[Rfam]
RNA sequence: ACUAAAAAGGGCCCGCAUACUUUGCGGGCCUAUCGUAUCUGCACUAAAGAUGCAGAUACUGAAUGGGAGAGGAGAAACCGGAGGAAGAGCUUAUGGGGAAACGUAAGUCUUCUCCGCGG
Numbered sequence: 001a002c003u004a005a006a007a008a009g010g011g012c013c014c015g016c017a018u019a020c021u022u023u024g025c026g027g028g029c030c031u032a033u034c035g036u037a038u039c040u041g042c043a044c045u046a047a048a049g050a051u052g053c054a055g056a057u058a059c060u061g062a063a064u065g066g067g068a069g070a071g072g073a074g075a076a077a078c079c080g081g082a083g084g085a086a087g088a089g090c091u092u093a094u095g096g097g098g099a100a101a102c103g104u105a106a107g108u109c110u111u112c113u114c115c116g117c118g119g
Base pairs, nucleotide, nucleotide: 011029012028013027014026015025016024017023030066031065032064033063038056039055040054041053042052043051079116080115081114082113084112085111086110087109089108090107091106092105093104
RNA: ylbH leader
Organism: Kroppenstedtia pulmonis